The record is a 154-nucleotide sequence from a Nannocystaceae bacterium, which matches "Group II catalytic intron D1-D4-4" in Rfam.
From the family's description: Group II introns are found in rRNA, tRNA and mRNA of organelles in fungi, plants and protists, and also in mRNA in bacteria.
Gene Ontology term of the family: Group II intron splicing.
Pairs were carried over by alignment from the consensus structure.
A reference for the family is Bonen and Vogel (2001), "The ins and outs of group II introns", Trends Genet.
RNA sequence: CAGCGGGGGAAGGUCCCGUCCCGGUAAGCGCCGGAGCGCCGGGUAGCAGAUCCCAGGCGCGAGGAGAGAUCCUCGUGUCCCGAGCGGGGUGUCGAAAGCCCGUGGAGCGGCGAGAGCCGUGCAGCGGGGAGCAAGUACGCGGGCCGCAACAUGA
Number, nucleotide and partner (000 for none) at each position: 001c000002a000003g000004c000005g000006g000007g000008g000009g000010a000011a000012g000013g000014u000015c000016c000017c000018g000019u000020c043021c042022c041023g040024g039025u000026a000027a000028g000029c000030g000031c000032c000033g000034g000035a000036g000037c000038g000039c024040c023041g022042g021043g020044u000045a000046g000047c000048a000049g000050a090051u089052c088053c087054c086055a000056g080057g078058c077059g076060c075061g000062a000063g000064g071065a070066g000067a000068g000069a000070u065071c064072c000073u000074c000075g060076u059077g058078u057079c000080c056081c000082g000083a000084g000085c000086g054087g053088g052089g051090u050091g000092u000093c000094g000095a000096a000097a000098g000099c128100c127101c126102g125103u000104g000105g000106a000107g000108c000109g000110g000111c000112g000113a000114g000115a000116g000117c000118c000119g000120u000121g000122c000123a000124g000125c102126g101127g100128g099129g000130a000131g147132c146133a000134a000135g000136u000137a000138c000139g000140c000141g000142g000143g000144c000145c000146g132147c131148a000149a000150c000151a000152u000153g000154a000